[Rfam]
RNA sequence: UGAUGUGAGGGCGAUCUGGCUGCGACGUCUGUCACCCCAUUGAUUGCCAGGGUUGAUUCAGCUGAUCUGGCUGGCUAGGUGGGUGUCCCCUUCCUCCCUCACUGCUCCAUGUGCGUCCCUCCCGAAGCUGCGCGCUUGGUCGAAGAGGACGACCUUCCCUGAUAGAGGCGGGUACUGUUCAUCGGUCAAGGGUUUACUUACGGUAGCAGCUCCCCUACUAGAUCCUCCAAACGAGCUCUCAAUAUCUAAAACAAUAAAAUCCCACAGUGAAUAAAGCAGCUGGAACCAUAACUCAUAU
Number, nucleotide and partner (000 for none) at each position: 001u000002g107003a106004u000005g102006u101007g100008a099009g098010g097011g096012c000013g093014a092015u000016c000017u000018g090019g089020c000021u000022g000023c000024g087025a086026c085027g084028u083029c082030u081031g080032u079033c078034a000035c074036c073037c070038c069039a068040u000041u000042g067043a066044u065045u064046g062047c061048c000049a000050g000051g000052g000053u000054u000055g000056a000057u000058u000059c000060a000061g047062c046063u000064g045065a044066u043067c042068u039069g038070g037071c000072u000073g036074g035075c000076u000077a000078g033079g032080u031081g030082g029083g028084u027085g026086u025087c024088c000089c019090c018091u000092u014093c013094c000095u000096c011097c010098c009099u008100c007101a006102c005103u000104g000105c000106u003107c002108c000109a000110u000111g000112u000113g000114c000115g000116u171117c170118c168119c167120u166121c165122c139123c138124g137125a136126a000127g135128c134129u000130g000131c000132g000133c000134g128135c127136u125137u124138g123139g122140u162141c161142g160143a000144a000145g000146a000147g158148g157149a156150c000151g000152a000153c000154c000155u000156u149157c148158c147159c000160u142161g141162a140163u000164a000165g121166a120167g119168g118169c000170g117171g116172g000173u000174a000175c000176u000177g000178u000179u000180c000181a000182u000183c000184g000185g000186u000187c000188a000189a000190g000191g000192g000193u000194u000195u000196a000197c000198u000199u000200a000201c000202g000203g292204u291205a000206g000207c000208a000209g000210c000211u285212c000213c283214c282215c279216u278217a000218c276219u000220a000221g000222a000223u000224c000225c000226u271227c000228c269229a000230a000231a000232c000233g265234a000235g263236c000237u000238c000239u000240c000241a000242a000243u000244a000245u000246c000247u000248a000249a000250a000251a000252c000253a000254a000255u000256a000257a000258a000259a000260u000261c000262c000263c235264a000265c233266a000267g000268u000269g228270a000271a226272u000273a000274a000275a000276g218277c000278a216279g215280c000281u000282g214283g213284a000285a211286c000287c000288a000289u000290a000291a204292c203293u000294c000295a000296u000297a000298u000
RNA: 7SK RNA
Organism: Chordeiles acutipennis